[Rfam]
RNA sequence: UGGUGACCUGAGGCUUCCUGGUUGUCGCUCUGUCCCACCCCUCCUGGCCUGCGGGGAACAGCCUGAGUCCCAGUAAAGUCUGUCAGGUCCUGACCC
Numbered sequence: 001u002g003g004u005g006a007c008c009u010g011a012g013g014c015u016u017c018c019u020g021g022u023u024g025u026c027g028c029u030c031u032g033u034c035c036c037a038c039c040c041c042u043c044c045u046g047g048c049c050u051g052c053g054g055g056g057a058a059c060a061g062c063c064u065g066a067g068u069c070c071c072a073g074u075a076a077a078g079u080c081u082g083u084c085a086g087g088u089c090c091u092g093a094c095c096c
Base pairs, nucleotide, nucleotide: 002095003094004093005089006088007087008086009085011081012080013079014078015077016076021074022073023072024071027068028067029066030065032063034061039055040054041053
A member of the RNA family "mir-8813 microRNA precursor family" from Canis lupus, 96 nucleotides long. The base pairs follow the family's consensus structure, which was predicted with RNAalifold.